This 97-nucleotide RNA from Senna tora belongs to the Rfam family "Small nucleolar RNA R64/Z200 family". For this family Rfam cites "Experimental RNomics: identification of 140 candidates for small non-messenger RNAs in the plant Arabidopsis thaliana" (Marker et al., Curr Biol, 2002). Rfam 15.1 lists 748 matches to the family in 228 species. The family's RNA type in Rfam is C/D-box small nucleolar RNA. Pairs were carried over by alignment from the consensus structure, which was predicted with PFOLD.

RNA sequence: AUGCUGCUGUGAUGAAAGUAGAUUAAAAUUUCCAAGUCAGACUUCAGAGAUUUUCGAAAUCAAUGAGAAUGACAAUACUACAUCUUCUGAGUACAAG
Numbered sequence: 001a002u003g004c005u006g007c008u009g010u011g012a013u014g015a016a017a018g019u020a021g022a023u024u025a026a027a028a029u030u031u032c033c034a035a036g037u038c039a040g041a042c043u044u045c046a047g048a049g050a051u052u053u054u055c056g057a058a059a060u061c062a063a064u065g066a067g068a069a070u071g072a073c074a075a076u077a078c079u080a081c082a083u084c085u086u087c088u089g090a091g092u093a094c095a096a097g
Stems, first nucleotide, its partner, number of pairs: 002096001005093003049061004